Rfam assigns this 31-nucleotide sequence to the family "L31-Firmicutes ribosomal protein leader". For this family Rfam cites "Discovery of 20 novel ribosomal leader candidates in bacteria and archaea" (Eckert and Weinberg, BMC Microbiol, 2020). It is one of the family's seed sequences. Rfam classes the family as a cis-regulatory leader.

[Rfam]
RNA sequence: CUAUGACAAGUAUUUGUCAUGGCGGAAGGAG
Numbered sequence: 001c002u003a004u005g006a007c008a009a010g011u012a013u014u015u016g017u018c019a020u021g022g023c024g025g026a027a028g029g030a031g
Stems, first nucleotide, its partner, number of pairs: 001022008